[Rfam]
RNA: Mammalian CPEB3 ribozyme
Organism: Polypterus senegalus
RNA sequence: AUUACAAUAUGGGGGGUCACAGUAGAAGCGUUCUUGUCCGACCCCUGUCUGAUUUUAUCUAAAUCUGCAAUCCUACU
Numbered sequence: 001a002u003u004a005c006a007a008u009a010u011g012g013g014g015g016g017u018c019a020c021a022g023u024a025g026a027a028g029c030g031u032u033c034u035u036g037u038c039c040g041a042c043c044c045c046u047g048u049c050u051g052a053u054u055u056u057a058u059c060u061a062a063a064u065c066u067g068c069a070a071u072c073c074u075a076c077u
Stems, first nucleotide, its partner, number of pairs: 013045006021077005027071001028039001030038001049067001051065005